[Rfam]
RNA sequence: AUGCUCACAAGAACACUUAUCCUGCCAUGUGGCUGUGAUGGGUGCUGGGAGCUAGAGCAGCAGUAUUGCUUUGGGAGUGUCACAUUCCAGCCACAUGGGACACUACAGUUUCCAAUACAACA
Numbered sequence: 001a002u003g004c005u006c007a008c009a010a011g012a013a014c015a016c017u018u019a020u021c022c023u024g025c026c027a028u029g030u031g032g033c034u035g036u037g038a039u040g041g042g043u044g045c046u047g048g049g050a051g052c053u054a055g056a057g058c059a060g061c062a063g064u065a066u067u068g069c070u071u072u073g074g075g076a077g078u079g080u081c082a083c084a085u086u087c088c089a090g091c092c093a094c095a096u097g098g099g100a101c102a103c104u105a106c107a108g109u110u111u112c113c114a115a116u117a118c119a120a121c122a
Stems, first nucleotide, its partner, number of pairs: 003052004008047001014040001017038002025032002063118001065116004071108003076104006083097001085093001
Record summary
Rfam assigns this 122-nucleotide RNA from Alaudala cheleensis to the family "Small Cajal body specific RNA 23". From the family's description: scaRNAs are a specific class of small nuclear RNAs which localise to the Cajal bodies and guide the modification of RNA polymerase II transcribed spliceosomal RNAs U1, U2, U4, U5 and U12. ACA11 belongs to the H/ACA box class of guide RNAs as it has the predicted hairpin-hinge-hairpin-tail structure,the conserved H/ACA-box motifs and is found associated with GAR1. H/ACA snRNAs are predicted to guide the modification of uridines to pseudouridines in substrate RNAs however, no target RNA has been identified for scaRNA ACA11. A search with the family's covariance model found it, with a score of 63 bits. The family has 18 seed sequences and 399 matches in Rfam 15.1. The family's consensus secondary structure was predicted with RNAfold. Rfam links the family to the GO terms Cajal body, RNA processing and nucleolus. A reference for the family is Darzacq et al. (2002), "Cajal body-specific small nuclear RNAs: a novel class of 2'-O-methylation and pseudouridylation guide RNAs", EMBO J.